[Rfam]
RNA: Rhizobiales sRNA Atu_C8
Organism: Nitratireductor indicus
RNA sequence: CAUGAACACUGGAAACAUUCUUAUCGUACGAUCGCGCAUGGGCAAGGCGGUGUAACCGUCUGGCGAAAGCCUCUCAUGCGCGAAACACAGGCUCCUUCGGGGGCCUUUUUUAUUGGCCCGGU
Numbered sequence: 001c002a003u004g005a006a007c008a009c010u011g012g013a014a015a016c017a018u019u020c021u022u023a024u025c026g027u028a029c030g031a032u033c034g035c036g037c038a039u040g041g042g043c044a045a046g047g048c049g050g051u052g053u054a055a056c057c058g059u060c061u062g063g064c065g066a067a068a069g070c071c072u073c074u075c076a077u078g079c080g081c082g083a084a085a086c087a088c089a090g091g092c093u094c095c096u097u098c099g100g101g102g103g104c105c106u107u108u109u110u111u112a113u114u115g116g117c118c119c120g121g122u
Stems, first nucleotide, its partner, number of pairs: 009026001030117001032115001033082010045061006063070002087107001089106007